Shown here is a 73-nucleotide RNA sequence from Takifugu rubripes, a member of the family "Small nucleolar RNA SNORD59". Rfam links the family to the GO terms RNA processing and nucleolus. Rfam's curators put it in the seed alignment. Clan: SNORD59 clan. A reference for the family is Galardi et al. (2002), "Purified box C/D snoRNPs are able to reproduce site-specific 2'-O-methylation of target RNA in vitro", Mol Cell Biol. The base pairs follow the family's consensus structure, which was predicted with ILM. The source organism's lineage runs through Eukaryota, Craniata, Acanthomorphata, Tetraodontoidei and Takifugu.

[Rfam]
RNA sequence: UCUUCUGUGAUGAUCAACACAUUGACUUUCGUUCUUCUGAGUGUACUGAAGCCAUCUUUUUGUCCUGAGAAGA
Numbered sequence: 001u002c003u004u005c006u007g008u009g010a011u012g013a014u015c016a017a018c019a020c021a022u023u024g025a026c027u028u029u030c031g032u033u034c035u036u037c038u039g040a041g042u043g044u045a046c047u048g049a050a051g052c053c054a055u056c057u058u059u060u061u062g063u064c065c066u067g068a069g070a071a072g073a
Base pairs, nucleotide, nucleotide: 001073002072003071005069